[Rfam]
RNA sequence: UUUUAAAUGGGAGAUGUUGCAUGCAUAUAUAUAUAUAUAUAUAUAUAUAUAUGCAUGCAACAUCUCCCAUUUAAAA
Numbered sequence: 001u002u003u004u005a006a007a008u009g010g011g012a013g014a015u016g017u018u019g020c021a022u023g024c025a026u027a028u029a030u031a032u033a034u035a036u037a038u039a040u041a042u043a044u045a046u047a048u049a050u051a052u053g054c055a056u057g058c059a060a061c062a063u064c065u066c067c068c069a070u071u072u073a074a075a076a
Stems, first nucleotide, its partner, number of pairs: 003074005009068003013064002017060005024053006
This 76-nucleotide sequence from Podarcis muralis belongs to the Rfam family "mir-965 microRNA precursor family". Gene Ontology terms of the family: RISC complex and miRNA-mediated post-transcriptional gene silencing. The base pairs follow the family's consensus structure, which was predicted with RNAalifold. The match comes from Rfam's covariance-model search (44 bits). NCBI's taxonomy places the organism under Eukaryota, Opisthokonta, Unidentata, Lacertinae, Podarcis. A reference for the family is Huang et al. (2012), "The regulation of silkworm fibroin L chain production by miRNA-965 and miRNA-1926 in insect cells", Bioorg Khim.